A member of the RNA family "Small Cajal body specific RNA 15" from Carlito syrichta, 127 nucleotides long. The literature on the family includes a 2002 paper in EMBO J by Darzacq et al., "Cajal body-specific small nuclear RNAs: a novel class of 2'-O-methylation and pseudouridylation guide RNAs". About the family: scaRNAs are a specific class of small nuclear RNAs which localise to the Cajal bodies and guide the modification of RNA polymerase II transcribed spliceosomal RNAs U1, U2, U4, U5 and U12. ACA45 belongs to the H/ACA box class of guide RNAs as it has the predicted hairpin-hinge-hairpin-tail structure, the conserved H/ACA-box motifs and is found associated with GAR1. ACA45 is predicted to guide the pseudouridylation of residue U37 of the U2 spliceosomal snRNA. A search with the family's covariance model found it, with a score of 104 bits. The base pairs follow the family's consensus structure, which was predicted with RNAfold.
RNA sequence: CUGGAGACUAAGGGAAUAGAGGACAUGAAGUUGAGCUGACUCUGCUUUUAGCCCCCCAAAUGAAAUGUUAGAUAGAACAGAUCUUGUUUGCAAAAUAAAUUCAAGACCUACUUAUCUACCAACAGCA
Numbered sequence: 001c002u003g004g005a006g007a008c009u010a011a012g013g014g015a016a017u018a019g020a021g022g023a024c025a026u027g028a029a030g031u032u033g034a035g036c037u038g039a040c041u042c043u044g045c046u047u048u049u050a051g052c053c054c055c056c057c058a059a060a061u062g063a064a065a066u067g068u069u070a071g072a073u074a075g076a077a078c079a080g081a082u083c084u085u086g087u088u089u090g091c092a093a094a095a096u097a098a099a100u101u102c103a104a105g106a107c108c109u110a111c112u113u114a115u116c117u118a119c120c121a122a123c124a125g126c127a
Stems, first nucleotide, its partner, number of pairs: 003056002006053001008051004017044005024035001026033002067120001069118006079109002082106005